[Rfam]
RNA: Small nucleolar RNA SNORA57
Organism: Laodelphax striatellus
RNA sequence: CCUCUCAACUUGGCAUGAUGACGUCUAUUUGAUGCUUCAUGUAUGCUUUUGAGAGGUAGAGUAAAGGUGGGAGUCUAUGCCUUCGGUGUCCACAUAUAUAAUUUGUUGGAUCCCAUCCUCAAUACUCCCCACAAUU
Numbered sequence: 001c002c003u004c005u006c007a008a009c010u011u012g013g014c015a016u017g018a019u020g021a022c023g024u025c026u027a028u029u030u031g032a033u034g035c036u037u038c039a040u041g042u043a044u045g046c047u048u049u050u051g052a053g054a055g056g057u058a059g060a061g062u063a064a065a066g067g068u069g070g071g072a073g074u075c076u077a078u079g080c081c082u083u084c085g086g087u088g089u090c091c092a093c094a095u096a097u098a099u100a101a102u103u104u105g106u107u108g109g110a111u112c113c114c115a116u117c118c119u120c121a122a123u124a125c126u127c128c129c130c131a132c133a134a135u136u
Stems, first nucleotide, its partner, number of pairs: 001056005014041005022034004070128005089110004